Record summary:
A member of the RNA family "Small nucleolar RNA snR60/Z15/Z230/Z193/J17" from Alectura lathami, 81 nucleotides long. The organism belongs to Alectura, within Eukaryota. It scores 63 bits against the family's covariance model. The literature on the family includes a 2004 paper in Curr Biol by Tycowski et al., "Guide RNAs with 5' caps and novel box C/D snoRNA-like domains for modification of snRNAs in metazoa". Rfam links the family to the GO terms RNA processing and nucleolus. Its Rfam clan is "SNORD77 clan".
RNA sequence: CAGAUACAGUGAUGAUAACAUAGUUCAACAGAAUAUGCUGUGAUGAACAGCUUUGUCUUUCGCUCCUAUCUGAUGUAUCUA
Numbered sequence: 001c002a003g004a005u006a007c008a009g010u011g012a013u014g015a016u017a018a019c020a021u022a023g024u025u026c027a028a029c030a031g032a033a034u035a036u037g038c039u040g041u042g043a044u045g046a047a048c049a050g051c052u053u054u055g056u057c058u059u060u061c062g063c064u065c066c067u068a069u070c071u072g073a074u075g076u077a078u079c080u081a
Stems, first nucleotide, its partner, number of pairs: 004078005